[Rfam]
RNA sequence: UGUGUGAUGAUGUACAGAGUCUGCGAAACACGCAGGUCGCGGAGCCCCGGCUGUGCGCGCCAAUUGAACUGCUGUAUUUCUUGGGUGAACAAUCUCUGAUG
Numbered sequence: 001u002g003u004g005u006g007a008u009g010a011u012g013u014a015c016a017g018a019g020u021c022u023g024c025g026a027a028a029c030a031c032g033c034a035g036g037u038c039g040c041g042g043a044g045c046c047c048c049g050g051c052u053g054u055g056c057g058c059g060c061c062a063a064u065u066g067a068a069c070u071g072c073u074g075u076a077u078u079u080c081u082u083g084g085g086u087g088a089a090c091a092a093u094c095u096c097u098g099a100u101g
Stems, first nucleotide, its partner, number of pairs: 001087003005084001007082001009080001012077006018070002020036006038057004043052003

This 101-nucleotide RNA sequence from Leptomonas pyrrhocoris belongs to the Rfam family "Small nucleolar RNA TBR2". Rfam links the family to the GO terms RNA processing and nucleolus. The base pairs follow the family's consensus structure, which was predicted with RNAfold. For this family Rfam cites "Fibrillarin-associated box C/D small nucleolar RNAs in Trypanosoma brucei. Sequence conservation and implications for 2'-O-ribose methylation of rRNA" (Dunbar et al., J Biol Chem, 2000). The family's RNA type in Rfam is C/D-box small nucleolar RNA. TBR4 was one of seventeen snoRNAs identified in Trypanosoma brucei. Rfam's curators put it in the seed alignment.